A member of the RNA family "transfer-messenger RNA" from Lentibacillus sp. CBA3610, 367 nucleotides long. NCBI's taxonomy places the organism under Bacteria, Bacillota, Caryophanales, Bacillaceae, Lentibacillus. Rfam's curators write: Bacterial tmRNA, also known as 10Sa RNA or SsrA, is named for its dual tRNA and mRNA-like properties. Its role is to liberate the mRNA from a stalled ribosome. To accomplish this part of the tmRNA is used as a reading frame that ends in a translation stop signal.

RNA sequence: GGGGGCGUUACGGAUUCGACAGGGAUAGAUUGAGCUCAGACUGCGCGUCGAGGUUACGGCUCGUAAAACGUUACUCGCUAAAUAUAAACGGCGAAAAAGAAGAAACUCCAGCUUUAGCAGCUGCCUAAGCACUGCCUAGAGCGAUCCUUCCUGCUACCCGCCCGUGGUGCAGAUUGAAGGGUCUCAAAUGAAGCGGGCUAUUCCGUCGUCCACCGUCUGAGGAUGACGGCAGAACCUAAUCAGACUAGCUGCCGGUAAGCCUGUUGGCAGGCUGAACGGUACGCGAAUGAUAAUAUGUCAACUAUGCGUGUAGAUGUCUGAGUGGCGAUAUCUCUGGACGUGGGUUCGAUUCCCACCGUCUCCACCA
Numbered sequence: 001g002g003g004g005g006c007g008u009u010a011c012g013g014a015u016u017c018g019a020c021a022g023g024g025a026u027a028g029a030u031u032g033a034g035c036u037c038a039g040a041c042u043g044c045g046c047g048u049c050g051a052g053g054u055u056a057c058g059g060c061u062c063g064u065a066a067a068a069c070g071u072u073a074c075u076c077g078c079u080a081a082a083u084a085u086a087a088a089c090g091g092c093g094a095a096a097a098a099g100a101a102g103a104a105a106c107u108c109c110a111g112c113u114u115u116a117g118c119a120g121c122u123g124c125c126u127a128a129g130c131a132c133u134g135c136c137u138a139g140a141g142c143g144a145u146c147c148u149u150c151c152u153g154c155u156a157c158c159c160g161c162c163c164g165u166g167g168u169g170c171a172g173a174u175u176g177a178a179g180g181g182u183c184u185c186a187a188a189u190g191a192a193g194c195g196g197g198c199u200a201u202u203c204c205g206u207c208g209u210c211c212a213c214c215g216u217c218u219g220a221g222g223a224u225g226a227c228g229g230c231a232g233a234a235c236c237u238a239a240u241c242a243g244a245c246u247a248g249c250u251g252c253c254g255g256u257a258a259g260c261c262u263g264u265u266g267g268c269a270g271g272c273u274g275a276a277c278g279g280u281a282c283g284c285g286a287a288u289g290a291u292a293a294u295a296u297g298u299c300a301a302c303u304a305u306g307c308g309u310g311u312a313g314a315u316g317u318c319u320g321a322g323u324g325g326c327g328a329u330a331u332c333u334c335u336g337g338a339c340g341u342g343g344g345u346u347c348g349a350u351u352c353c354c355a356c357c358g359u360c361u362c363c364a365c366c367a
Stems, first nucleotide, its partner, number of pairs: 001363007020336008034323008044310005049063004054073001056071003113140004117135004143183006151172004157166001160198006203229009215246001218243001248284002250281005256275001259272003263302004267296001269294001340356005